RNA sequence: GUUUGAAAUUAACCCCUAGCCUCUGCAUCUAAGUCUUUGCUGUGUAAUUUUUUACUAAUUAGUACUGGCAUAAAUAGUUCUGUCAAAUGGAUACCACAUCGAUAUGAUGCUUUGGCCGUGGCUCUUGAGUCACCAGGGUGCAAGGCAGAAAUGCCUGCAUCCCCCAUGAUUGGAAGGUGUUAUAGUGGAACAACU
Numbered sequence: 001g002u003u004u005g006a007a008a009u010u011a012a013c014c015c016c017u018a019g020c021c022u023c024u025g026c027a028u029c030u031a032a033g034u035c036u037u038u039g040c041u042g043u044g045u046a047a048u049u050u051u052u053u054a055c056u057a058a059u060u061a062g063u064a065c066u067g068g069c070a071u072a073a074a075u076a077g078u079u080c081u082g083u084c085a086a087a088u089g090g091a092u093a094c095c096a097c098a099u100c101g102a103u104a105u106g107a108u109g110c111u112u113u114g115g116c117c118g119u120g121g122c123u124c125u126u127g128a129g130u131c132a133c134c135a136g137g138g139u140g141c142a143a144g145g146c147a148g149a150a151a152u153g154c155c156u157g158c159a160u161c162c163c164c165c166a167u168g169a170u171u172g173g174a175a176g177g178u179g180u181u182a183u184a185g186u187g188g189a190a191c192a193a194c195u
Stems, first nucleotide, its partner, number of pairs: 003189002006186001011181003015177002019116003025110005033103003118133005136162006143156005163173002

This 195-nucleotide sequence from Xenorhabdus cabanillasii belongs to the Rfam family "Molybdenum/Tungsten riboswitch aptamer (Moco RNA motif)". The family's consensus secondary structure is taken from published work. Lineage of the source: Bacteria > Gammaproteobacteria > Enterobacterales > Morganellaceae > Xenorhabdus.